Rfam assigns this 62-nucleotide RNA sequence from Clostridium arbusti to the family "RAGATH-18 RNA". It is one of the family's seed sequences. Pairs were carried over by alignment from the consensus structure, which is taken from published work. The family's RNA type in Rfam is small RNA.
RNA sequence: CCCUAGGAGUGUUAUAUCAAACGAAAGUAGCUCAUGCAAAAUCGGACACGUUGAACAGGGAA
Number, nucleotide and partner (000 for none) at each position: 001c060002c059003c058004u057005a000006g000007g000008a000009g049010u048011g047012u046013u045014a000015u000016a000017u000018c000019a000020a000021a000022c044023g043024a042025a000026a000027g000028u000029a000030g037031c036032u000033c000034a000035u000036g031037c030038a000039a000040a000041a000042u024043c023044g022045g013046a012047c011048a010049c009050g000051u000052u000053g000054a000055a000056c000057a004058g003059g002060g001061a000062a000